[Rfam]
RNA sequence: CUGCAGCUUAUUAAGCCGACUGGACAGGUUGUGUGUACUUGUGUGGUGUGCAAAGGCUGCAGACAGUAAAUCUUUGGUUGUGUAUGAGCCUAGCUGGGUAGUGCUGGGCCCUUUAAGGGACCAUUGAAACAUGC
Numbered sequence: 001c002u003g004c005a006g007c008u009u010a011u012u013a014a015g016c017c018g019a020c021u022g023g024a025c026a027g028g029u030u031g032u033g034u035g036u037a038c039u040u041g042u043g044u045g046g047u048g049u050g051c052a053a054a055g056g057c058u059g060c061a062g063a064c065a066g067u068a069a070a071u072c073u074u075u076g077g078u079u080g081u082g083u084a085u086g087a088g089c090c091u092a093g094c095u096g097g098g099u100a101g102u103g104c105u106g107g108g109c110c111c112u113u114u115a116a117g118g119g120a121c122c123a124u125u126g127a128a129a130c131a132u133g134c
Stems, first nucleotide, its partner, number of pairs: 002052004019047004025041004076122003088109005
RNA: Small nucleolar RNA SNORA70